RNA sequence: GAUGUCCGUUCAGCCGUUUUUCUUUCGCUUCUUUUUUGCAUCCUGACUUCGGGAGGCAGCGGUCUGGCGAGAAACAAGCGAAAGACGAACAGCCAAGCCUCCCACCGGGAGGCUUUUUUUAU
Numbered sequence: 001g002a003u004g005u006c007c008g009u010u011c012a013g014c015c016g017u018u019u020u021u022c023u024u025u026c027g028c029u030u031c032u033u034u035u036u037u038g039c040a041u042c043c044u045g046a047c048u049u050c051g052g053g054a055g056g057c058a059g060c061g062g063u064c065u066g067g068c069g070a071g072a073a074a075c076a077a078g079c080g081a082a083a084g085a086c087g088a089a090c091a092g093c094c095a096a097g098c099c100u101c102c103c104a105c106c107g108g109g110a111g112g113c114u115u116u117u118u119u120u121a122u
Stems, first nucleotide, its partner, number of pairs: 016090004021085010032074003036070004041054004055064003095115009

Overview:
This 122-nucleotide RNA from Oceanimonas doudoroffii belongs to the Rfam family "Phenylalanine leader peptide". It is annotated as a cis-regulatory leader. A search with the family's covariance model found it, with a score of 83 bits. The base pairs follow the family's consensus structure, which was predicted with CMfinder. Gene Ontology term of the family: cellular amino acid metabolic process. Lineage of the source: Bacteria > Pseudomonadota > Gammaproteobacteria > Aeromonadales > Oceanimonas.